Notes: Small nucleolar RNA SNORD59: a 78-nucleotide RNA sequence from Chaetura pelagica. The base pairs follow the family's consensus structure, which was predicted with ILM. Rfam 15.1 lists 1,355 matches to the family in 620 species. By type it is a C/D-box small nucleolar RNA. The family is grouped with related families in Rfam's "SNORD59 clan". For this family Rfam cites "Purified box C/D snoRNPs are able to reproduce site-specific 2'-O-methylation of target RNA in vitro" (Galardi et al., Mol Cell Biol, 2002). The match comes from Rfam's covariance-model search (57 bits). Rfam links the family to the GO terms RNA processing and nucleolus.

[Rfam]
RNA sequence: CCUCCUGUGAUGAUGUAUUUCCAUGACUUUCGUUCUCCUGAGCUUGCUGAAGCCACGGAUUUCGAUCUGAGGGGAAGG
Dot-bracket structure: (((.(....................................................................).)))